[Rfam]
RNA: FMN riboswitch aptamer (RFN element)
RNA sequence: AAUCGUGCUCCGGGGUCGGUGAAAUUCCGAACCGGCGGUGACAGUCCGCGAACCGUGUGCAUCAAUAUUGUGAUGCCUAUGGCCGAACCGGUGAAAUUCCGGUACCGACAGUACAGUCUGGAUGGUAGGUAGCACGAGC
Numbered sequence: 001a002a003u004c005g006u007g008c009u010c011c012g013g014g015g016u017c018g019g020u021g022a023a024a025u026u027c028c029g030a031a032c033c034g035g036c037g038g039u040g041a042c043a044g045u046c047c048g049c050g051a052a053c054c055g056u057g058u059g060c061a062u063c064a065a066u067a068u069u070g071u072g073a074u075g076c077c078u079a080u081g082g083c084c085g086a087a088c089c090g091g092u093g094a095a096a097u098u099c100c101g102g103u104a105c106c107g108a109c110a111g112u113a114c115a116g117u118c119u120g121g122a123u124g125g126u127a128g129g130u131a132g133c134a135c136g137a138g139c
Stems, first nucleotide, its partner, number of pairs: 003137007010128001017029003031117002033107002035049004044105002053082005087103005109120003